The family of this 123-nucleotide sequence from Glycine max is "MIR1520 microRNA precursor family".
Lineage of the source: Eukaryota > Streptophytina > fabids > Fabaceae > Glycine subgen. Soja.
A search with the family's covariance model found it, with a score of 94 bits.
Pairs were carried over by alignment from the consensus structure, which was predicted with RNAalifold.

RNA sequence: UUCUUAUUGGAUAACGACUCUCACGUGCCAUGUUAUGAUUAUUAGAUGCCAACUUCAUGAAAAAUGAGAUGCAUUGUUGUUUUCAUUGACCAUUCAAAAUAUGACACGUGACAGUCGUCAUCC
Numbered sequence: 001u002u003c004u005u006a007u008u009g010g011a012u013a014a015c016g017a018c019u020c021u022c023a024c025g026u027g028c029c030a031u032g033u034u035a036u037g038a039u040u041a042u043u044a045g046a047u048g049c050c051a052a053c054u055u056c057a058u059g060a061a062a063a064a065u066g067a068g069a070u071g072c073a074u075u076g077u078u079g080u081u082u083u084c085a086u087u088g089a090c091c092a093u094u095c096a097a098a099a100u101a102u103g104a105c106a107c108g109u110g111a112c113a114g115u116c117g118u119c120a121u122c123c
Stems, first nucleotide, its partner, number of pairs: 021111003025107002029103003033099002036096001038094001040092001